This 190-nucleotide RNA sequence from Antonospora locustae belongs to the Rfam family "U2 spliceosomal RNA". For this family Rfam cites "The uRNA database" (Zwieb, Nucleic Acids Res, 1997). About the family: U2 is a small nuclear RNA (snRNA) component of the spliceosome (involved in pre-mRNA splicing). Gene Ontology terms of the family: pre-mRNA branch point binding, mRNA branch site recognition and U2 snRNP. Pairs were carried over by alignment from the consensus structure, which is taken from published work. Rfam classes the family as a spliceosomal small nuclear RNA.
RNA sequence: CCACCUCUCAAAGCUCAUAGCUUUGAUCAAGUGUAGUAUCUGUUCUUGUCAGUGUGACAGCUGACAAACUAGCUCCUUGGAGCUAGAAUAUGCUGGUGUGUGUGUGGAUGCUUUGACAGGCUUGCUUGUAGGGGCCAUGCACACACCAGGCAGACUCCCGGAAGUUGUUCCGUCCGGAGCUGCACUUUUU
Numbered sequence: 001c002c003a004c005c006u007c008u009c010a011a012a013g014c015u016c017a018u019a020g021c022u023u024u025g026a027u028c029a030a031g032u033g034u035a036g037u038a039u040c041u042g043u044u045c046u047u048g049u050c051a052g053u054g055u056g057a058c059a060g061c062u063g064a065c066a067a068a069c070u071a072g073c074u075c076c077u078u079g080g081a082g083c084u085a086g087a088a089u090a091u092g093c094u095g096g097u098g099u100g101u102g103u104g105u106g107g108a109u110g111c112u113u114u115g116a117c118a119g120g121c122u123u124g125c126u127u128g129u130a131g132g133g134g135c136c137a138u139g140c141a142c143a144c145a146c147c148a149g150g151c152a153g154a155c156u157c158c159c160g161g162a163a164g165u166u167g168u169u170c171c172g173u174c175c176g177g178a179g180c181u182g183c184a185c186u187u188u189u190u
Stems, first nucleotide, its partner, number of pairs: 008026003012022004047066006070085006102144005108138002117128004150183004158177005